[Rfam]
RNA sequence: AAGAGAGGAGCGCUUAUGAGCGAAGCGAAUAAAUCAAAUGCGCUCCGACGACCUGCCCCGCUCGCAGAGGCGAGAGGGGCGUUACAUAUU
Number, nucleotide and partner (000 for none) at each position: 001a000002a000003g000004a000005g000006a000007g046008g045009a044010g043011c042012g041013c000014u000015u031016a030017u029018g000019a000020g026021c000022g000023a000024a000025g000026c020027g000028a000029a017030u016031a015032a000033a000034u000035c000036a000037a000038a000039u000040g000041c012042g011043c010044u009045c008046c007047g000048a000049c000050g000051a000052c000053c000054u000055g080056c079057c078058c000059c076060g000061c074062u000063c000064g071065c070066a000067g000068a000069g000070g065071c064072g000073a000074g061075a000076g059077g000078g057079g056080c055081g000082u000083u000084a000085c000086a000087u000088a000089u000090u000

A member of the RNA family "GA-cis RNA", 90 nucleotides long. Rfam's curators put it in the seed alignment. Rfam classes the family as a small RNA.